Record summary:
Rfam assigns this 75-nucleotide RNA from Bifidobacterium canis to the family "Transposase-2 RNA". NCBI's taxonomy places the organism under Bacteria, Bacillati, Actinomycetota, Bifidobacteriaceae, Bifidobacterium. The match comes from Rfam's covariance-model search (58 bits). The family's RNA type in Rfam is small RNA.
RNA sequence: GAAGCGCCUAUCAAGCAGCCACCAUCGUAGUGGUGGUGUGAGGCUUGAAGCUGACCGUCGCAAGACGGUCAUGUC
Numbered sequence: 001g002a003a004g005c006g007c008c009u010a011u012c013a014a015g016c017a018g019c020c021a022c023c024a025u026c027g028u029a030g031u032g033g034u035g036g037u038g039u040g041a042g043g044c045u046u047g048a049a050g051c052u053g054a055c056c057g058u059c060g061c062a063a064g065a066c067g068g069u070c071a072u073g074u075c
Stems, first nucleotide, its partner, number of pairs: 011048005018037008052071008